[Rfam]
RNA: traJ-II RNA
RNA sequence: GGGCAGGAUGUGUGAAGUAGGCCCACCCCCAAGCGGGUUGUCCUUCUUCACUUGCCCUUAUUCGCACCUGCGGUGCUCAACGGGAAUCCUGCCCUGCGGGGCC
Numbered sequence: 001g002g003g004c005a006g007g008a009u010g011u012g013u014g015a016a017g018u019a020g021g022c023c024c025a026c027c028c029c030c031a032a033g034c035g036g037g038u039u040g041u042c043c044u045u046c047u048u049c050a051c052u053u054g055c056c057c058u059u060a061u062u063c064g065c066a067c068c069u070g071c072g073g074u075g076c077u078c079a080a081c082g083g084g085a086a087u088c089c090u091g092c093c094c095u096g097c098g099g100g101g102c103c
Stems, first nucleotide, its partner, number of pairs: 001094009012051006019044003025038004055084003064076005